Record summary:
Bacteroides sRNA BTnc049: a 109-nucleotide RNA sequence from Bacteroides sp. CAG:530. A reference for the family is Ryan et al. (2020), "A high-resolution transcriptome map identifies small RNA regulation of metabolism in the gut microbe Bacteroides thetaiotaomicron", Nat Commun. The family's RNA type in Rfam is small RNA. NCBI's taxonomy places the organism under Bacteria, Pseudomonadati, Bacteroidales, Bacteroidaceae, Bacteroides. The match comes from Rfam's covariance-model search (83 bits).
RNA sequence: AUAAAAACAGAAGUUGUGAAACUUCUUAUUUGAAUAGUUUAGUUAAGUCUAGUUUAGUUUUUGUGUUGUGAUGCUUCUCCUUAUAGUGUUAAGGAGGAGCAUCUUUUUU
Numbered sequence: 001a002u003a004a005a006a007a008c009a010g011a012a013g014u015u016g017u018g019a020a021a022c023u024u025c026u027u028a029u030u031u032g033a034a035u036a037g038u039u040u041a042g043u044u045a046a047g048u049c050u051a052g053u054u055u056a057g058u059u060u061u062u063g064u065g066u067u068g069u070g071a072u073g074c075u076u077c078u079c080c081u082u083a084u085a086g087u088g089u090u091a092a093g094g095a096g097g098a099g100c101a102u103c104u105u106u107u108u109u
Stems, first nucleotide, its partner, number of pairs: 001064005010025006036055002039052004071102009081092003